RNA sequence: CCAAAGGCUCUUCUAAGAGCCACCCACAUUGCUUUGAAAAAGCGCU
Number, nucleotide and partner (000 for none) at each position: 001c000002c000003a000004a000005a000006g021007g020008c019009u018010c017011u016012u000013c000014u000015a000016a011017g010018a009019g008020c007021c006022a000023c000024c000025c000026a000027c000028a000029u000030u000031g000032c000033u000034u000035u000036g000037a000038a000039a000040a000041a000042g000043c000044g000045c000046u000